[Rfam]
RNA sequence: AAACGAGGCACGCUGAGUUCUGUUCGCCUCGCACAAUUACACAAAGAACAGAAGCGGAGGACCCAACCUUCGGAAACUCCCCUCCCGGAGCUUCCUUGGGGUGAAGUUGCUACUGCAACCGGGGCACCUCAGCCCGAACCCGACAGCUUACUUCGCAAGCGACAACAAGAGAGGAC
Number, nucleotide and partner (000 for none) at each position: 001a000002a000003a000004c000005g000006a000007g000008g000009c000010a000011c161012g160013c159014u158015g000016a000017g000018u053019u052020c051021u050022g049023u048024u047025c046026g000027c000028c000029u000030c000031g000032c000033a000034c000035a000036a000037u000038u000039a000040c000041a000042c000043a000044a000045a000046g025047a024048a023049c022050a021051g020052a019053a018054g156055c155056g154057g153058a152059g151060g000061a000062c000063c000064c098065a097066a000067c000068c000069u000070u000071c000072g000073g000074a000075a000076a000077c000078u000079c000080c000081c000082c000083u000084c000085c000086c000087g000088g000089a000090g000091c000092u000093u000094c000095c000096u000097u065098g064099g141100g140101g139102u000103g000104a000105a000106g000107u118108u117109g116110c115111u000112a000113c000114u000115g110116c109117a108118a107119c000120c000121g135122g134123g133124g000125c000126a000127c000128c000129u000130c000131a000132g000133c123134c122135c121136g000137a000138a000139c101140c100141c099142g000143a000144c000145a000146g000147c000148u000149u000150a000151c059152u058153u057154c056155g055156c054157a000158a014159g013160c012161g011162a000163c000164a000165a000166c000167a000168a000169g000170a000171g000172a000173g000174g000175a000176c000
Shown here is a 176-nucleotide sequence from Corynebacterium sp. HMSC08D02, a member of the family "c-di-AMP riboswitch aptamer (ydaO/yuaA leader)". The organism belongs to Corynebacterium, within Bacteria.